[Rfam]
RNA sequence: AGUUCGACCGAAAGGUAAAUAUCAGCUGGUAAUUCUAGGCUAUCAAUCCAUCGUGCAUCCCGGGAUUUCAGCUGAUAUCCACUUUUCCGUCGAG
Numbered sequence: 001a002g003u004u005c006g007a008c009c010g011a012a013a014g015g016u017a018a019a020u021a022u023c024a025g026c027u028g029g030u031a032a033u034u035c036u037a038g039g040c041u042a043u044c045a046a047u048c049c050a051u052c053g054u055g056c057a058u059c060c061c062g063g064g065a066u067u068u069c070a071g072c073u074g075a076u077a078u079c080c081a082c083u084u085u086u087c088c089g090u091c092g093a094g
Base pairs, nucleotide, nucleotide: 011086012085013084014083015082016081019078020077021076022075023074024073025072026071027070028069029068032066033065034064035063036062038060039059